[Rfam]
RNA: c-di-AMP riboswitch aptamer (ydaO/yuaA leader)
RNA sequence: GAAUAACUUUAGCCUAAGUUUUUAACGCGGGGAACCCAAAAUAUUGGGGUGAAUCGUUUUUACGUAGGUUAACCUUUUCCGAACCCGUCAGCUAACCCCGUUGGCAAAAGGAGGAUUAAAU
Numbered sequence: 001g002a003a004u005a006a007c008u009u010u011a012g013c014c015u016a017a018g019u020u021u022u023u024a025a026c027g028c029g030g031g032g033a034a035c036c037c038a039a040a041a042u043a044u045u046g047g048g049g050u051g052a053a054u055c056g057u058u059u060u061u062a063c064g065u066a067g068g069u070u071a072a073c074c075u076u077u078u079c080c081g082a083a084c085c086c087g088u089c090a091g092c093u094a095a096c097c098c099c100g101u102u103g104g105c106a107a108a109a110g111g112a113g114g115a116u117u118a119a120a121u
Stems, first nucleotide, its partner, number of pairs: 012105003018026003027101006037046002047086003055064003067080002